[Rfam]
RNA: Bacterial RNase P class A
Organism: Ginsengibacter hankyongi
RNA sequence: ACUGCAAACCAGGUUAUCGCUCUCAUUAAGUUGGGUGAGGAAAGUCCGGACAGCAAAGAGCAACACACCGGUUAAUGGCCGGUCCCGAUCUUGAUCGGGAAGAAAGUGCCACAGAAAAUUACCGUCCUGAUGAAUAAUCGGAAUAAGGGUGAAAACGUGAGGUAAGAGCUCACGGGAAUUGUUGGUAACAAUAGUUUUGGGUAAACCUUGUGUGCUGCAAUGCCACGUAUAUCCCGAUUUGCCUUAACGCAAAGUAAGCUGCUCGUUUAUAUUUCUGCUCUUGCAGAAUAUCGGGAAGGGUAGGCAGCAAGAUUGUUGCAGUAAUGCAACAGCCAGAUAAAUGAUAGCCAUUCCGUCCUGAGCUUGUCGAAGGAUCGGGAACAGAAUCCGGCUUACAGGUUUGCAGUAAAU
Numbered sequence: 001a002c003u004g005c006a007a008a009c010c011a012g013g014u015u016a017u018c019g020c021u022c023u024c025a026u027u028a029a030g031u032u033g034g035g036u037g038a039g040g041a042a043a044g045u046c047c048g049g050a051c052a053g054c055a056a057a058g059a060g061c062a063a064c065a066c067a068c069c070g071g072u073u074a075a076u077g078g079c080c081g082g083u084c085c086c087g088a089u090c091u092u093g094a095u096c097g098g099g100a101a102g103a104a105a106g107u108g109c110c111a112c113a114g115a116a117a118a119u120u121a122c123c124g125u126c127c128u129g130a131u132g133a134a135u136a137a138u139c140g141g142a143a144u145a146a147g148g149g150u151g152a153a154a155a156c157g158u159g160a161g162g163u164a165a166g167a168g169c170u171c172a173c174g175g176g177a178a179u180u181g182u183u184g185g186u187a188a189c190a191a192u193a194g195u196u197u198u199g200g201g202u203a204a205a206c207c208u209u210g211u212g213u214g215c216u217g218c219a220a221u222g223c224c225a226c227g228u229a230u231a232u233c234c235c236g237a238u239u240u241g242c243c244u245u246a247a248c249g250c251a252a253a254g255u256a257a258g259c260u261g262c263u264c265g266u267u268u269a270u271a272u273u274u275c276u277g278c279u280c281u282u283g284c285a286g287a288a289u290a291u292c293g294g295g296a297a298g299g300g301u302a303g304g305c306a307g308c309a310a311g312a313u314u315g316u317u318g319c320a321g322u323a324a325u326g327c328a329a330c331a332g333c334c335a336g337a338u339a340a341a342u343g344a345u346a347g348c349c350a351u352u353c354c355g356u357c358c359u360g361a362g363c364u365u366g367u368c369g370a371a372g373g374a375u376c377g378g379g380a381a382c383a384g385a386a387u388c389c390g391g392c393u394u395a396c397a398g399g400u401u402u403g404c405a406g407u408a409a410a411u
Stems, first nucleotide, its partner, number of pairs: 001407010012349007020037001022035004042394003046391005051217004063213005068082005083100007101208002106206002108202003122148002124144002127141005156174006176197009221306004232296005276290002279287002313332008